[Rfam]
RNA sequence: AAAUGUCUUUCUCUUUUAGUAUUUGUCCAGUAGGUUUCCUCAACGAGAAAACCCCC
Numbered sequence: 001a002a003a004u005g006u007c008u009u010u011c012u013c014u015u016u017u018a019g020u021a022u023u024u025g026u027c028c029a030g031u032a033g034g035u036u037u038c039c040u041c042a043a044c045g046a047g048a049a050a051a052c053c054c055c056c
Base pairs, nucleotide, nucleotide: 033053034052035051036050037049039047040046041045
Shown here is a 56-nucleotide RNA from Oncorhynchus tshawytscha, a member of the family "U7 small nuclear RNA".
The source organism's lineage runs through Eukaryota, Teleostomi, Euteleostomi, Protacanthopterygii and Oncorhynchus.
The literature on the family includes a 1994 paper in Nucleic Acids Res by Spycher et al., "3' end processing of mouse histone pre-mRNA: evidence for additional base-pairing between U7 snRNA and pre-mRNA".